The family of this 123-nucleotide RNA from Virgibacillus salarius is "Ribosomal protein L20 leader". The source organism's lineage runs through Bacteria, Bacillati, Bacillota, Caryophanales and Virgibacillus.
RNA sequence: UGAGACAAGUAGAAGCACCCGCUUCUCACCUGAUUGACACCUGUUGGUAGUUGACUGGUUCCGACUCUUAUAUAAACGAUUGGAGACGUGUGGGUGCAUAUAUGCCCGCACUUUUUUCAUGAU
Numbered sequence: 001u002g003a004g005a006c007a008a009g010u011a012g013a014a015g016c017a018c019c020c021g022c023u024u025c026u027c028a029c030c031u032g033a034u035u036g037a038c039a040c041c042u043g044u045u046g047g048u049a050g051u052u053g054a055c056u057g058g059u060u061c062c063g064a065c066u067c068u069u070a071u072a073u074a075a076a077c078g079a080u081u082g083g084a085g086a087c088g089u090g091u092g093g094g095u096g097c098a099u100a101u102a103u104g105c106c107c108g109c110a111c112u113u114u115u116u117u118c119a120u121g122a123u
Base pairs, nucleotide, nucleotide: 011026012025013024014023015022016021028059029058030057036052037051038050039048040047089110090109091108092107093106094105095104096103